The record is a 257-nucleotide RNA sequence from Pichia kudriavzevii, which matches "Fungal signal recognition particle RNA" in Rfam.
Gene Ontology terms of the family: signal recognition particle, endoplasmic reticulum targeting, signal recognition particle, plasma membrane targeting and SRP-dependent cotranslational protein targeting to membrane, signal sequence recognition.
The base pairs follow the family's consensus structure, which is taken from published work.
The match comes from Rfam's covariance-model search (114 bits).
RNA sequence: CGCUGUAAUGGCGUGGCGGAGCGGCCAAGACUAGGUCUCGCACCAUGGGAAGCACAUACAGCAGAGGUGUCCGUUUCGACCCGUGCGGUCGCCUGUUGCACACUGCGAGGAAUCCAGUGUUGCGCAUGCAGCAAAGAGCCGGAGUACCGCUUUAGGGUAGUGAUACAGCAAAGCGCCCGGUCCGUGUGGGGGCGAGGAGGACUGCAUCUCGCUGGGUAAUGUGUGUUUCCCGUGGGGCGGUUGUUGGCGUAACCGUU
Numbered sequence: 001c002g003c004u005g006u007a008a009u010g011g012c013g014u015g016g017c018g019g020a021g022c023g024g025c026c027a028a029g030a031c032u033a034g035g036u037c038u039c040g041c042a043c044c045a046u047g048g049g050a051a052g053c054a055c056a057u058a059c060a061g062c063a064g065a066g067g068u069g070u071c072c073g074u075u076u077c078g079a080c081c082c083g084u085g086c087g088g089u090c091g092c093c094u095g096u097u098g099c100a101c102a103c104u105g106c107g108a109g110g111a112a113u114c115c116a117g118u119g120u121u122g123c124g125c126a127u128g129c130a131g132c133a134a135a136g137a138g139c140c141g142g143a144g145u146a147c148c149g150c151u152u153u154a155g156g157g158u159a160g161u162g163a164u165a166c167a168g169c170a171a172a173g174c175g176c177c178c179g180g181u182c183c184g185u186g187u188g189g190g191g192g193c194g195a196g197g198a199g200g201a202c203u204g205c206a207u208c209u210c211g212c213u214g215g216g217u218a219a220u221g222u223g224u225g226u227u228u229c230c231c232g233u234g235g236g237g238c239g240g241u242u243g244u245u246g247g248c249g250u251a252a253c254c255g256u257u
Base pairs, nucleotide, nucleotide: 001013002012003011015257016256017255018254019253024248025247026246027245028244030242034241035238036237037236045233046232047231048230049229050228051227052226053225054224055223056222057221058220061212062211064210065209066208067207068206069205070204071200072199074197075196076195077194078193080190081189082188083187084186085185086184087183088182093131094130095129096128097126098125099124100120101119102118103117104116105115107114108113132136138181139180140179141178142177148175149174150173151172152171157166158165159164